Shown here is a 198-nucleotide RNA from Corymbia citriodora, a member of the family "U2 spliceosomal RNA". Rfam's curators write: U2 is a small nuclear RNA (snRNA) component of the spliceosome (involved in pre-mRNA splicing). A search with the family's covariance model found it, with a score of 148 bits. Clan: U2 clan. It is annotated as a spliceosomal small nuclear RNA.

[Rfam]
Nucleotides: 198
Base pairs, nucleotide, nucleotide: 008027009026010025012023013022014021015020048066049065050064051063052062068084069083070082071081072080073079074078112149113148114147115146116145117144118143119142127138128137129136130135152191153190154189155188156187157186159183160182163179164178165177
Number, partner (000 for none) and nucleotide at each position: 001000a002000u003000a004000c005000c006000u007000u008027u009026c010025u011000c012023g013022g014021c015020c016000u017000u018000u019000u020015g021014g022013c023012u024000a025010a026009g027008a028000u029000c030000a031000a032000g033000u034000g035000u036000a037000g038000u039000a040000u041000c042000u043000g044000u045000u046000c047000u048066u049065a050064u051063c052062a053000u054000u055000u056000a057000a058000u059000a060000u061000c062052u063051g064050a065049u066048a067000c068084g069083u070082g071081g072080g073079c074078c075000a076000u077000c078074g079073g080072c081071c082070c083069a084068c085000a086000u087000g088000a089000u090000a091000u092000u093000a094000a095000a096000u097000u098000a099000a100000u101000u102000u103000u104000u105000c106000u107000a108000g109000g110000g111000g112149a113148a114147g115146g116145g117144g118143c119142u120000u121000a122000u123000a124000a125000c126000g127138g128137u129136a130135g131000c132000u133000u134000g135130c136129u137128g138127c139000u140000g141000g142119g143118g144117c145116c146115u147114c148113u149112u150000g151000c152191u153190c154189g155188u156187c157186g158000c159183c160182c161000a162000c163179u164178g165177c166000g167000u168000u169000g170000c171000a172000c173000u174000g175000c176000u177165g178164c179163a180000c181000g182160g183159g184000c185000c186157u187156g188155g189154c190153g191152a192000a193000u194000c195000c196000c197000u198000c